[Rfam]
RNA sequence: CCCAGGGCUGCCGCCCUGGGCUAAUAUGACAUGCGCCGUUGGCGCA
Numbered sequence: 001c002c003c004a005g006g007g008c009u010g011c012c013g014c015c016c017u018g019g020g021c022u023a024a025u026a027u028g029a030c031a032u033g034c035g036c037c038g039u040u041g042g043c044g045c046a
Stems, first nucleotide, its partner, number of pairs: 001020008033045005